[Rfam]
Shown here is a 108-nucleotide sequence from Rhododendron simsii, a member of the family "Small nucleolar RNA snoR100". Gene Ontology terms of the family: RNA processing and nucleolus. The family's RNA type in Rfam is H/ACA-box small nucleolar RNA. The match comes from Rfam's covariance-model search (54 bits). The base pairs follow the family's consensus structure, which was predicted with WAR. A reference for the family is Marker et al. (2002), "Experimental RNomics: identification of 140 candidates for small non-messenger RNAs in the plant Arabidopsis thaliana", Curr Biol.
Nucleotides: 108
Stems, first nucleotide, its partner, number of pairs: 012025004040091001042089003050081003
Number, partner (000 for none) and nucleotide at each position: 001000c002000u003000a004000u005000c006000a007000a008000u009000g010000a011000a012025g013024c014023a015022u016000g017000a018000u019000a020000a021000a022015g023014u024013g025012u026000a027000c028000a029000u030000a031000a032000a033000u034000u035000g036000a037000a038000u039000u040091g041000g042089g043088u044087u045000u046000c047000u048000a049000g050081g051080u052079c053000u054000g055000c056000c057000a058000u059000c060000u061000c062000u063000g064000a065000u066000u067000u068000u069000u070000g071000a072000c073000c074000a075000a076000u077000u078000u079052g080051g081050u082000u083000u084000g085000g086000g087044g088043g089042c090000a091040u092000g093000g094000u095000u096000c097000c098000g099000u100000a101000g102000a103000a104000a105000a106000a107000c108000a